[Rfam]
RNA sequence: GGGGAGGUCAGAUACCUAGCCAAACCCAGACAUGUUUGCGUUGGCACUGUGGCUUCCCAAGAGCAGCGCCUCCUUGCAUGCCCUCUGAUGACUGCAGUCAGUUGAGAGAAAUCACUGCAGACAGAUACGGGGCAAACAUUU
Number, nucleotide and partner (000 for none) at each position: 001g000002g058003g057004g056005a055006g054007g053008u000009c000010a000011g000012a000013u000014a000015c000016c044017u043018a042019g041020c000021c000022a000023a037024a036025c000026c034027c000028a000029g000030a000031c000032a000033u000034g026035u000036u024037u023038g000039c000040g000041u019042u018043g017044g016045c000046a000047c000048u000049g000050u000051g000052g000053c007054u006055u005056c004057c003058c002059a000060a000061g000062a000063g000064c000065a000066g000067c000068g000069c000070c000071u000072c000073c000074u000075u000076g000077c000078a000079u134080g133081c132082c131083c130084u129085c000086u000087g000088a000089u000090g000091a000092c120093u119094g118095c000096a000097g115098u114099c000100a112101g000102u000103u000104g000105a000106g000107a000108g000109a000110a000111a000112u100113c000114a098115c097116u000117g000118c094119a093120g092121a000122c000123a000124g000125a000126u000127a000128c000129g084130g083131g082132g081133c080134a079135a000136a000137c000138a000139u000140u000141u000